This 381-nucleotide sequence from Cutibacterium acnes belongs to the Rfam family "Bacterial RNase P class A". The organism belongs to Cutibacterium acnes, within Bacteria. By type it is a ribozyme.
RNA sequence: CGAGCCAUCCGGGUGAUCGCGGCAGCGGUGAGUUGUCGAGGAAAGUCCGGGCUCCAUAGAGCAGGGUGGUGGGUAACGCCCACCCGGGGUGACCCGCGGGAAAGUGCCACAGAGAACAGACUGCCGGUUUCGAGCCGGUGAGGGUGAAACGGUGGAGUAAGUGCCCACCGCGUCAUCGGUGACGGUGACGGCAUGGCAAACCCCACCUGGAGCAAGGCCAAGAAGACCGUGAGGUCGCGGACGCGUUUGAGGGUUGCUCGCUUGAGUGUUCGGGUAGGCUGCGCAGCCGAAAGGCUGGAGGACACCAGCAAUGGUGUUCACAGAUGGAUGAUCACCGGCCCGGCGGGGCUACAGAACCCGGCUUAUAGGAUGGCUCGUCCC
Numbered sequence: 001c002g003a004g005c006c007a008u009c010c011g012g013g014u015g016a017u018c019g020c021g022g023c024a025g026c027g028g029u030g031a032g033u034u035g036u037c038g039a040g041g042a043a044a045g046u047c048c049g050g051g052c053u054c055c056a057u058a059g060a061g062c063a064g065g066g067u068g069g070u071g072g073g074u075a076a077c078g079c080c081c082a083c084c085c086g087g088g089g090u091g092a093c094c095c096g097c098g099g100g101a102a103a104g105u106g107c108c109a110c111a112g113a114g115a116a117c118a119g120a121c122u123g124c125c126g127g128u129u130u131c132g133a134g135c136c137g138g139u140g141a142g143g144g145u146g147a148a149a150c151g152g153u154g155g156a157g158u159a160a161g162u163g164c165c166c167a168c169c170g171c172g173u174c175a176u177c178g179g180u181g182a183c184g185g186u187g188a189c190g191g192c193a194u195g196g197c198a199a200a201c202c203c204c205a206c207c208u209g210g211a212g213c214a215a216g217g218c219c220a221a222g223a224a225g226a227c228c229g230u231g232a233g234g235u236c237g238c239g240g241a242c243g244c245g246u247u248u249g250a251g252g253g254u255u256g257c258u259c260g261c262u263u264g265a266g267u268g269u270u271c272g273g274g275u276a277g278g279c280u281g282c283g284c285a286g287c288c289g290a291a292a293g294g295c296u297g298g299a300g301g302a303c304a305c306c307a308g309c310a311a312u313g314g315u316g317u318u319c320a321c322a323g324a325u326g327g328a329u330g331a332u333c334a335c336c337g338g339c340c341c342g343g344c345g346g347g348g349c350u351a352c353a354g355a356a357c358c359c360g361g362c363u364u365a366u367a368g369g370a371u372g373g374c375u376c377g378u379c380c381c
Base pairs, nucleotide, nucleotide: 001377002376003375004374005373006372007371008370009369010368011366012336013335014334015333016332017331018330020038021037022036023035024034025033026032043364044363045362047361048360049359050358051357052212053211054210055209059259060258061257062256064208065207066206067205068204069083070082071081072080073079084098085096086095087094088093099203100202104201105200106197107196108195121143122142123139124138125137126136127135128134129133151169152168153167154166155165170192171190172189173188174187175186176185177184178183216280217279218278219277239271240270241269242268243267244266251263252262253261254260300319301318302317303316304315305314306313307312
Dot-bracket structure: ((((((((((((((((((.(((((((.....)))))))....[[[.[[[[[((((...[[[[.((((((((((.....)))))(((((....)))).)((...(((((............(((((((((...)))))))..)).......(((((.........)))))(((((((((....)))))))).)..)))..)))))))))))))...((((...................((((((......((((.]]]]))))..)))))).....))))...................((((((((....))))))))..........)))))))....................]]]]]]]].).))))))))))....